flpD RNA: a 47-nucleotide RNA from Methanococcus maripaludis. Pairs were carried over by alignment from the consensus structure, which is taken from published work. NCBI's taxonomy places the organism under Archaea, Methanobacteriati, Methanococci, Methanococcales, Methanococcus maripaludis. Rfam's curators put it in the seed alignment.

RNA sequence: UCAUAUGACGAGCAACCCGAAGGUUUAGACCAGGGAAGUUCUGAUGA
Number, nucleotide and partner (000 for none) at each position: 001u047002c046003a045004u044005a000006u000007g000008a000009c000010g041011a040012g039013c038014a000015a000016c035017c034018c033019g000020a000021a000022g031023g030024u029025u000026u000027a000028g000029a024030c023031c022032a000033g018034g017035g016036a000037a000038g013039u012040u011041c010042u000043g000044a004045u003046g002047a001